RNA sequence: ACUCCGGUUGAUCCUGCCGGACCCCACUGCUAUCGGGAUAGGACUAAGACAUGCUAGUCAAGCGCUCUCCAGCCAAAGGAGAGUGCGGCGCACAGCUCAGUAACACGUGGCUAACCUGCCCUUGGGAUAGGGACAACCCCGGGAAACUGGGGCUAAUCCCCAAUAGGUGAAGUGCUCUGGAAUGAGCCUUCGCCCGAAAGGAUGCUUGCGCUAUGCUCGCAAGCUUCGCCCGAGGAUGGGGCCGCGACCGAUCAGGUUGUUGGUGAGGUAAUGGCUCACCAAGCCUUUAACCGGUGCGGGCCGUGGGAGCGGGAGCCCGGAGAUGGGCACUGAGACAAGGGCCCAGGCCCUACGGGGCGCAGCAGUCGCGCAAACUUUGCAAUACACGAAAGUGUGACAGGGCUAUCCCGAGUGCCGUCCGCUGAGGAUGGCUUUUACCCAGUCUAGAACGCUGGGGGAAUAAGGAGAGGGCAAGUCUGGUGUCAGCCGCCGCGGUAAUACCAGCUCUCCGAGUGGUGUGGAUGUUUAUUG
Number, nucleotide and partner (000 for none) at each position: 001a000002c000003u000004c020005c019006g018007g017008u016009u000010g000011a000012u000013c000014c000015u000016g008017c007018c006019g005020g004021a000022c521023c520024c000025c518026a517027c516028u515029g514030c513031u512032a000033u411034c410035g409036g408037g407038a406039u405040a404041g403042g369043a000044c000045u000046a000047a000048g367049a366050c365051a000052u364053g363054c362055u000056a000057g089058u088059c087060a000061a000062g086063c085064g084065c083066u082067c081068u080069c079070c078071a000072g000073c000074c000075a000076a000077a000078g070079g069080a068081g067082a066083g065084u064085g063086c062087g059088g058089c057090g000091c000092a000093c000094a000095g000096c322097u321098c320099a000100g000101u000102a000103a000104c000105a000106c246107g245108u244109g243110g242111c241112u240113a000114a000115c239116c238117u000118g000119c000120c235121c234122u233123u232124g231125g230126g229127a000128u162129a000130g160131g159132g000133a000134c000135a000136a000137c152138c151139c150140c149141g148142g147143g000144a000145a000146a000147c142148u141149g140150g139151g138152g137153c000154u000155a000156a000157u000158c000159c131160c130161c000162a128163a000164u000165a000166g000167g193168u192169g191170a190171a189172g188173u000174g000175c000176u185177c184178u000179g000180g000181a000182a000183u000184g177185a176186g000187c000188c172189u171190u170191c169192g168193c167194c000195c000196g000197a000198a000199a000200g227201g226202a000203u000204g000205c000206u000207u000208g000209c000210g000211c000212u000213a000214u000215g000216c000217u000218c000219g000220c000221a000222a000223g000224c000225u000226u201227c200228g000229c126230c125231c124232g123233a122234g121235g120236a000237u000238g116239g115240g112241g111242c110243c109244g108245c107246g106247a000248c294249c293250g292251a000252u000253c000254a000255g285256g284257u283258u000259g000260u282261u281262g280263g279264u278265g277266a276267g275268g000269u000270a000271a000272u000273g000274g000275c267276u266277c265278a264279c263280c262281a261282a260283g257284c256285c255286u000287u000288u000289a000290a000291c000292c250293g249294g248295u000296g000297c319298g318299g317300g316301c312302c311303g310304u309305g000306g000307g000308a000309g304310c303311g302312g301313g000314a000315g000316c300317c299318c298319g297320g098321a097322g096323a000324u345325g344326g343327g342328c341329a000330c000331u000332g000333a000334g000335a000336c000337a000338a000339g000340g000341g328342c327343c326344c325345a324346g000347g358348c357349c356350c355351u000352a000353c000354g000355g350356g349357g348358c347359g000360c000361a000362g054363c053364a052365g050366u049367c048368g000369c042370g000371c000372a000373a000374a000375c401376u000377u400378u399379g398380c000381a000382a000383u396384a395385c394386a393387c392388g000389a000390a000391a000392g387393u386394g385395u384396g383397a000398c379399a378400g377401g375402g000403c041404u040405a039406u038407c037408c036409c035410g034411a033412g000413u000414g432415c431416c430417g429418u428419c427420c426421g000422c000423u000424g000425a000426g420427g419428a418429u417430g416431g415432c414433u000434u000435u000436u000437a000438c456439c455440c454441a453442g452443u451444c000445u000446a000447g000448a000449a000450c000451g443452c442453u441454g440455g439456g438457g000458g000459a000460a000461u000462a000463a000464g510465g509466a508467g507468a506469g505470g000471g000472c000473a000474a000475g000476u000477c504478u503479g502480g501481u000482g000483u000484c000485a000486g493487c492488c000489g000490c000491c000492g487493c486494g000495g000496u000497a000498a000499u000500a000501c480502c479503a478504g477505c469506u468507c467508u466509c465510c464511g000512a031513g030514u029515g028516g027517u026518g025519u000520g023521g022522a000523u000524g000525u000526u000527u000528a000529u000530u000531g000
This 531-nucleotide part of an RNA from uncultured crenarchaeote MCG belongs to the Rfam family "Archaeal small subunit ribosomal RNA". Rfam's curators put it in the seed alignment. Clan: SSU clan. Rfam links the family to the GO terms ribosome and structural constituent of ribosome. A reference for the family is Yusupov et al. (2001), "Crystal structure of the ribosome at 5.5 A resolution", Science.